[Rfam]
RNA sequence: AAUAUCCAAGAAUUAUUCUAGGAUCUAAAGUUGGAUUAAUUAAUCUAACUUCACCACCACCAGGUGCCCAAGUAUCAUAAGCUCCACCGAUGAAACACCAGUUUAGAGACCAUGCUAACGCCCCGACACCUAAAACAAUAAGGUGAUAACCGAGGAUAUUAGUCAUUUGAUUCUUGUCUCUCCA
Numbered sequence: 001a002a003u004a005u006c007c008a009a010g011a012a013u014u015a016u017u018c019u020a021g022g023a024u025c026u027a028a029a030g031u032u033g034g035a036u037u038a039a040u041u042a043a044u045c046u047a048a049c050u051u052c053a054c055c056a057c058c059a060c061c062a063g064g065u066g067c068c069c070a071a072g073u074a075u076c077a078u079a080a081g082c083u084c085c086a087c088c089g090a091u092g093a094a095a096c097a098c099c100a101g102u103u104u105a106g107a108g109a110c111c112a113u114g115c116u117a118a119c120g121c122c123c124c125g126a127c128a129c130c131u132a133a134a135a136c137a138a139u140a141a142g143g144u145g146a147u148a149a150c151c152g153a154g155g156a157u158a159u160u161a162g163u164c165a166u167u168u169g170a171u172u173c174u175u176g177u178c179u180c181u182c183c184a
Stems, first nucleotide, its partner, number of pairs: 142181002145178003152173003

Rfam assigns this 184-nucleotide sequence to the family "Antisense RNA which regulates isiA expression". Rfam's curators put it in the seed alignment. A reference for the family is Duhring et al. (2006), "An internal antisense RNA regulates expression of the photosynthesis gene isiA", Proc Natl Acad Sci U S A.